[Rfam]
RNA sequence: GGAUCGGGACGGCCCGAUCCUUUCCGAGGCUUUCAGCCGGGACGACCUGG
Numbered sequence: 001g002g003a004u005c006g007g008g009a010c011g012g013c014c015c016g017a018u019c020c021u022u023u024c025c026g027a028g029g030c031u032u033u034c035a036g037c038c039g040g041g042a043c044g045a046c047c048u049g050g
Stems, first nucleotide, its partner, number of pairs: 001020008037050005
RNA: Guanidine-II riboswitch aptamer (mini-ykkC)
Organism: Devosia pacifica